A member of the RNA family "tRNA" from Tengunoibacter tsumagoiensis, 72 nucleotides long.
A reference for the family is Lowe and Eddy (1997), "tRNAscan-SE: a program for improved detection of transfer RNA genes in genomic sequence", Nucleic Acids Res.
The organism belongs to Tengunoibacter, within Bacteria.

RNA sequence: UCCUCGAUAGCUCAACGGUAGAGCAAUCGGCUGUUAACCGAUUGGUUACAGGUUCGAAUCCUGUUCGAGGAG
Numbered sequence: 001u002c003c004u005c006g007a008u009a010g011c012u013c014a015a016c017g018g019u020a021g022a023g024c025a026a027u028c029g030g031c032u033g034u035u036a037a038c039c040g041a042u043u044g045g046u047u048a049c050a051g052g053u054u055c056g057a058a059u060c061c062u063g064u065u066c067g068a069g070g071a072g
Stems, first nucleotide, its partner, number of pairs: 001071007010024004026042005048064005